[Rfam]
RNA: msiK RNA
Organism: Vallicoccus soli
RNA sequence: GCGUGACCACCCUCACUCGGAUCGUCCGGCACGUUCCUGCCGGUGAGAGGACACACC
Numbered sequence: 001g002c003g004u005g006a007c008c009a010c011c012c013u014c015a016c017u018c019g020g021a022u023c024g025u026c027c028g029g030c031a032c033g034u035u036c037c038u039g040c041c042g043g044u045g046a047g048a049g050g051a052c053a054c055a056c057c
Base pairs, nucleotide, nucleotide: 010049012047013046014045015044026043027042028041029040030039031038